The record is a 165-nucleotide sequence from Streptomyces chumphonensis, which matches "c-di-AMP riboswitch aptamer (ydaO/yuaA leader)" in Rfam. Pairs were carried over by alignment from the consensus structure. The organism belongs to Streptomyces, within Bacteria. The match comes from Rfam's covariance-model search (48 bits). This family represents a conserved RNA structure found upstream of the ydaO and yuaA genes in Bacillus subtilis and related genes in other bacteria.

RNA sequence: ACGGGAACAUCGUCGCGUCCGCGAACCGCCGGCAGGAGCGGGGGAACCAGGCACGUGCCGUGCGAGCGGCUAGGGGUGAAGUCCGGAGCGGGUGGACCGCACCGGGCCGGGCGGCUCACCCGCCCGAACCCGACAGCUCACCCCGUAGGCGUCCGGUGAGGAAGA
Numbered sequence: 001a002c003g004g005g006a007a008c009a010u011c012g013u014c015g016c017g018u019c020c021g022c023g024a025a026c027c028g029c030c031g032g033c034a035g036g037a038g039c040g041g042g043g044g045a046a047c048c049a050g051g052c053a054c055g056u057g058c059c060g061u062g063c064g065a066g067c068g069g070c071u072a073g074g075g076g077u078g079a080a081g082u083c084c085g086g087a088g089c090g091g092g093u094g095g096a097c098c099g100c101a102c103c104g105g106g107c108c109g110g111g112c113g114g115c116u117c118a119c120c121c122g123c124c125c126g127a128a129c130c131c132g133a134c135a136g137c138u139c140a141c142c143c144c145g146u147a148g149g150c151g152u153c154c155g156g157u158g159a160g161g162a163a164g165a
Stems, first nucleotide, its partner, number of pairs: 011151004018037003038146006048073001074131003082106004109125004